This 121-nucleotide RNA from Chionoecetes opilio belongs to the Rfam family "Small nucleolar RNA SNORA14". It is annotated as an H/ACA-box small nucleolar RNA. ACA14 is a member of the H/ACA class of snoRNA that guide the sites of modification of uridines to pseudouridines. The family's consensus secondary structure was predicted with RNAfold.
[Rfam]
RNA sequence: UGGCACUUUUAAACCUCUUUCUUGCUACUGUUACUUUGAAAGACAAAGAAGAGUGCAAGAGUAACUGUGAAUUCCAAGGUUGUUGACACUUGUUUACAACCAUUUCACCUCACAGACAGUU
Numbered sequence: 001u002g003g004c005a006c007u008u009u010u011a012a013a014c015c016u017c018u019u020u021c022u023u024g025c026u027a028c029u030g031u032u033a034c035u036u037u038g039a040a041a042g043a044c045a046a047a048g049a050a051g052a053g054u055g056c057a058a059g060a061g062u063a064a065c066u067g068u069g070a071a072u073u074c075c076a077a078g079g080u081u082g083u084u085g086a087c088a089c090u091u092g093u094u095u096a097c098a099a100c101c102a103u104u105u106c107a108c109c110u111c112a113c114a115g116a117c118a119g120u121u
Stems, first nucleotide, its partner, number of pairs: 003056004008049001009047002016043006060121003065115006078101006086093002